[Rfam]
Background: A member of the RNA family "ZMP/ZTP riboswitch aptamer (pfl RNA motif)" from bacterium D16-34, 97 nucleotides long. Gene Ontology terms of the family: regulation of purine nucleotide biosynthetic process and one-carbon metabolic process.

RNA sequence: AAAACACGUUGUGACUGACGGAAGCAAGUAGUUGUAUGUGGGCAACCACAGGGGGGGCAGCGUGAAUAACAAAUCGCCGACCGUCUGGGCAAGUCGC
Numbered sequence: 001a002a003a004a005c006a007c008g009u010u011g012u013g014a015c016u017g018a019c020g021g022a023a024g025c026a027a028g029u030a031g032u033u034g035u036a037u038g039u040g041g042g043c044a045a046c047c048a049c050a051g052g053g054g055g056g057g058c059a060g061c062g063u064g065a066a067u068a069a070c071a072a073a074u075c076g077c078c079g080a081c082c083g084u085c086u087g088g089g090c091a092a093g094u095c096g097c
Stems, first nucleotide, its partner, number of pairs: 005064008015054002017085005038049004074092001076090003